The family of this 78-nucleotide RNA sequence from Sphingomonas parapaucimobilis is "Makes More Granules Regulator RNA (mmgR)". The family's RNA type in Rfam is small RNA. It scores 52 bits against the family's covariance model. Rfam 15.1 lists 1,791 matches to the family in 918 species. SuhB later renamed mmgR (makes more granules regulator) was a putative non-coding RNA found multiple times in the Agrobacterium tumefaciens genome and related alpha-proteobacteria. Other non-coding RNAs uncovered in the same analysis include: speF, ybhL, metA, and serC.Several studies inSinorhizobium meliloti showed that suhB element is indeed a non-coding RNA:firstly it was detected on Northern blot and called Sm8RNA, secondly in an RNAseq study referred to as SmelC689.The mutant phenotype's (strain lacking the small RNA) cytoplasm contains higher content of polyhydroxybutyrate (PBH)storage granules than wild type strain. The sRNA is required to limit the PBH intracellular accumulation when the nitrogen-fixing Sinorhizobium meliloti is under condition of surplus carbon in relation to nitrogen. It has been renamed to mmgR. Further study confirmed that mmgR fine-tunes the regulation of PBH storage.Northern blot confirmed the expression of the sRNA in other rhizobia species. MmgR homologues were found in most alpha-proteobacteria.
[Rfam]
RNA sequence: GGAACGGGCCUUUCAGGCAUCCUCUCCUAAAAACUUUCACGGGCUGGUCGUUUCGAUCGGCCCUUUUUUUUGCCCCGG
Numbered sequence: 001g002g003a004a005c006g007g008g009c010c011u012u013u014c015a016g017g018c019a020u021c022c023u024c025u026c027c028u029a030a031a032a033a034c035u036u037u038c039a040c041g042g043g044c045u046g047g048u049c050g051u052u053u054c055g056a057u058c059g060g061c062c063c064u065u066u067u068u069u070u071u072g073c074c075c076c077g078g
Stems, first nucleotide, its partner, number of pairs: 008018004041063009